[Rfam]
RNA sequence: AUCCUCCAGUUUACUUUCCCACUGGAUCUGAGCACUGGUCUUGGUGGUUUUAAAGGUGGAAAAGUAAUGUUGAAAUUGAGCUCACAGCCUAAUAGUUUUAUAUAUAGCAUGUGGGCUGCUAUCAAACAAGG
Numbered sequence: 001a002u003c004c005u006c007c008a009g010u011u012u013a014c015u016u017u018c019c020c021a022c023u024g025g026a027u028c029u030g031a032g033c034a035c036u037g038g039u040c041u042u043g044g045u046g047g048u049u050u051u052a053a054a055g056g057u058g059g060a061a062a063a064g065u066a067a068u069g070u071u072g073a074a075a076u077u078g079a080g081c082u083c084a085c086a087g088c089c090u091a092a093u094a095g096u097u098u099u100a101u102a103u104a105u106a107g108c109a110u111g112u113g114g115g116c117u118g119c120u121a122u123c124a125a126a127c128a129a130g131g
Stems, first nucleotide, its partner, number of pairs: 003059002006056002019047005025040004077118002081114002093107001

A member of the RNA family "Small nucleolar RNA SNORA61" from Fukomys damarensis, 131 nucleotides long. It is annotated as an H/ACA-box small nucleolar RNA. A search with the family's covariance model found it, with a score of 92 bits. ACA61 is a member of the H/ACA class of snoRNA that guide the sites of modification of uridines to pseudouridines. Taxonomically the source falls in Fukomys (Eukaryota, Opisthokonta, Rodentia, Bathyergidae). The family has 25 seed sequences and 881 matches in Rfam 15.1.